Description: The family of this 109-nucleotide RNA from Herbinix luporum is "TPP riboswitch aptamer (THI element)". A search with the family's covariance model found it, with a score of 58 bits. Rfam links the family to the GO term thiamine pyrophosphate binding.
RNA sequence: UUAAUAAAAAAGGGGAGCUUGCAGGAAGCAGGCUGAGAGUAGACUGUUAGGUCUUGACCCAUAACCUGAUUUGGAUAAUGCCAACGUAGGGAAAUAAAUUCACUAGUAA
Numbered sequence: 001u002u003a004a005u006a007a008a009a010a011a012g013g014g015g016a017g018c019u020u021g022c023a024g025g026a027a028g029c030a031g032g033c034u035g036a037g038a039g040u041a042g043a044c045u046g047u048u049a050g051g052u053c054u055u056g057a058c059c060c061a062u063a064a065c066c067u068g069a070u071u072u073g074g075a076u077a078a079u080g081c082c083a084a085c086g087u088a089g090g091g092a093a094a095u096a097a098a099u100u101c102a103c104u105a106g107u108a109a
Base pairs, nucleotide, nucleotide: 008095012060013059014058016055017033018032019031020030021029041054042053043052044051065090066089067088068087071084072083073082074081